[Rfam]
Bacterial small signal recognition particle RNA: a 99-nucleotide sequence from a Frankiales bacterium. Rfam links the family to the GO terms signal recognition particle, plasma membrane targeting and SRP-dependent cotranslational protein targeting to membrane, signal sequence recognition. It scores 56 bits against the family's covariance model. From the family's description: The signal recognition particle (SRP) is a universally conserved ribonucleoprotein involved in the co-translational targeting of proteins to membranes. The source organism's lineage runs through Bacteria, Bacillati, Actinomycetota, Actinomycetes and Frankiales. It is annotated as a non-coding RNA gene. The family is grouped with related families in Rfam's "SRP clan".
RNA sequence: UCAGACCCCUCGUGCGGCGCCCAUCUCGCUGAACUCCCCCAGGGCCGGAAGGCAGCAAGGGCAGGCGAGCUCUGAGCGGGUGUGCGGGGGGUCCUCUAC
Dot-bracket structure: ...((((((((((((..(((.(..((((((.....(((.....(((....))).....)))..))))))....).))).)..)))))))))))......